[Rfam]
RNA sequence: UACUCCCUCCGUCCCAGAAAAAGGCAACCUAGUACUAGGAUAUGACACAUCCUAGUACUAGGUUCCCUUUUUUUGGGACGGAUGGAGUAU
Numbered sequence: 001u002a003c004u005c006c007c008u009c010c011g012u013c014c015c016a017g018a019a020a021a022a023g024g025c026a027a028c029c030u031a032g033u034a035c036u037a038g039g040a041u042a043u044g045a046c047a048c049a050u051c052c053u054a055g056u057a058c059u060a061g062g063u064u065c066c067c068u069u070u071u072u073u074u075g076g077g078a079c080g081g082a083u084g085g086a087g088u089a090u
Base pairs, nucleotide, nucleotide: 001089002088003087004086005085006084008082009081010080011079012078013077014076015075016074017073018072019071020070021069022068023067024066026064027063028062029061030060031059032058033057034056035055038052039051040050
The family of this 90-nucleotide RNA sequence from Oryza meridionalis is "MIR1862 microRNA precursor family".
The organism belongs to Oryza, within Eukaryota.
Pairs were carried over by alignment from the consensus structure, which was predicted with RNAalifold.
Its family is annotated with RISC complex and miRNA-mediated post-transcriptional gene silencing in the Gene Ontology.